[Rfam]
RNA: small nucleolar RNA snoR117
Organism: Amborella trichopoda
RNA sequence: GGCCAUUGAUGCUGAAAUUGUCCGUACCAUCGGAGAUGCUUACAUCUUUGACGAUUGUAUCUAUAUAUAUUUCUGAGGCCA
Numbered sequence: 001g002g003c004c005a006u007u008g009a010u011g012c013u014g015a016a017a018u019u020g021u022c023c024g025u026a027c028c029a030u031c032g033g034a035g036a037u038g039c040u041u042a043c044a045u046c047u048u049u050g051a052c053g054a055u056u057g058u059a060u061c062u063a064u065a066u067a068u069a070u071u072u073c074u075g076a077g078g079c080c081a
Base pairs, nucleotide, nucleotide: 001080002079003078004077